[Rfam]
RNA sequence: AGUUCGUCGGGGUCGACUCCCCUGGUCACGAGCAGGUAGUCACGGAUGCAGAUACCGUGCCGCCCCUC
Number, nucleotide and partner (000 for none) at each position: 001a000002g000003u000004u000005c062006g061007u000008c059009g058010g000011g000012g029013u028014c000015g027016a026017c025018u024019c000020c000021c000022c000023u000024g018025g017026u016027c015028a013029c012030g000031a000032g000033c000034a000035g056036g055037u054038a053039g000040u052041c051042a000043c000044g000045g000046a000047u000048g000049c000050a000051g041052a040053u038054a037055c036056c035057g000058u009059g008060c000061c006062g005063c000064c000065c000066c000067u000068c000

A member of the RNA family "ASdes TB sRNA" from Amycolatopsis taiwanensis, 68 nucleotides long. Taxonomically the source falls in Amycolatopsis (Bacteria, Bacillati, Actinomycetes, Pseudonocardiales). The base pairs follow the family's consensus structure, which is taken from published work. It is annotated as a small RNA.